[Rfam]
RNA sequence: CGUUGUAAUUCGGACAACGGAACUGGCGGCAAGACAGGGGUGCGAAUCCCCUCGCCUCCACCAUCGACGCCCGGCGCUGGGAGUACGCGACUCCUGGGCAGGGAGUGUUACCCUGGCGGGCUGCGGCCCGAGCCAAAGGUAGCCGGGCGUCGUUGAUGGGGGCGACUAGCUUUCGAUUGGCGCUCGGGACUGAAAGACGCAACGGUGGGUGACCUCCACAUCGGCUUGCCGGUGAUCGGGUCAGGCAACAGUAAAUGUCGCCGCCAAUGACAACGACGUCGUGGCUUUCGCCUCGGCUCGUGAAGCCAUCGCCGCCUAA
Numbered sequence: 001c002g003u004u005g006u007a008a009u010u011c012g013g014a015c016a017a018c019g020g021a022a023c024u025g026g027c028g029g030c031a032a033g034a035c036a037g038g039g040g041u042g043c044g045a046a047u048c049c050c051c052u053c054g055c056c057u058c059c060a061c062c063a064u065c066g067a068c069g070c071c072c073g074g075c076g077c078u079g080g081g082a083g084u085a086c087g088c089g090a091c092u093c094c095u096g097g098g099c100a101g102g103g104a105g106u107g108u109u110a111c112c113c114u115g116g117c118g119g120g121c122u123g124c125g126g127c128c129c130g131a132g133c134c135a136a137a138g139g140u141a142g143c144c145g146g147g148c149g150u151c152g153u154u155g156a157u158g159g160g161g162g163c164g165a166c167u168a169g170c171u172u173u174c175g176a177u178u179g180g181c182g183c184u185c186g187g188g189a190c191u192g193a194a195a196g197a198c199g200c201a202a203c204g205g206u207g208g209g210u211g212a213c214c215u216c217c218a219c220a221u222c223g224g225c226u227u228g229c230c231g232g233u234g235a236u237c238g239g240g241u242c243a244g245g246c247a248a249c250a251g252u253a254a255a256u257g258u259c260g261c262c263g264c265c266a267a268u269g270a271c272a273a274c275g276a277c278g279u280c281g282u283g284g285c286u287u288u289c290g291c292c293u294c295g296g297c298u299c300g301u302g303a304a305g306c307c308a309u310c311g312c313c314g315c316c317u318a319a
Base pairs, nucleotide, nucleotide: 001204002203003202004201005200017191026183027182028181030179031178032177036052037051038050039049040048053164054163055162056161057160058159059158205216